[Rfam]
About this RNA:
The record is a 214-nucleotide RNA sequence from Lyngbya sp. PCC 8106, which matches "HNH endonuclease-associated RNA and ORF (HEARO) RNA" in Rfam. By type it is a non-coding RNA gene. It is one of the family's seed sequences.
RNA sequence: GUCAGCACCCCGCUCUAAAGAGCAGGGGCCGAAGCGCCUCUCUCUUAGAUAGCUGACCAGCCUAAGUCUUGUUGGACUACGUUUUUAGAGUUAUGACACCUACAAAUGCUUUCCAGUUUGUAGCCCUGUCGUUAGUUGUUAAACAUUCCUACGAGGGGUAAGAAAGUGCAACUAGCCGAACAAGCUUUAAAAACAUUGGCGAGGAAAAAAUUAC
Numbered sequence: 001g002u003c004a005g006c007a008c009c010c011c012g013c014u015c016u017a018a019a020g021a022g023c024a025g026g027g028g029c030c031g032a033a034g035c036g037c038c039u040c041u042c043u044c045u046u047a048g049a050u051a052g053c054u055g056a057c058c059a060g061c062c063u064a065a066g067u068c069u070u071g072u073u074g075g076a077c078u079a080c081g082u083u084u085u086u087a088g089a090g091u092u093a094u095g096a097c098a099c100c101u102a103c104a105a106a107u108g109c110u111u112u113c114c115a116g117u118u119u120g121u122a123g124c125c126c127u128g129u130c131g132u133u134a135g136u137u138g139u140u141a142a143a144c145a146u147u148c149c150u151a152c153g154a155g156g157g158g159u160a161a162g163a164a165a166g167u168g169c170a171a172c173u174a175g176c177c178g179a180a181c182a183a184g185c186u187u188u189a190a191a192a193a194c195a196u197u198g199g200c201g202a203g204g205a206a207a208a209a210a211u212u213a214c
Stems, first nucleotide, its partner, number of pairs: 001057006007050001009028002011025001014021002060200003064196001065078005081194011096129002100123008110207005131176009143167002146164002149162002151159002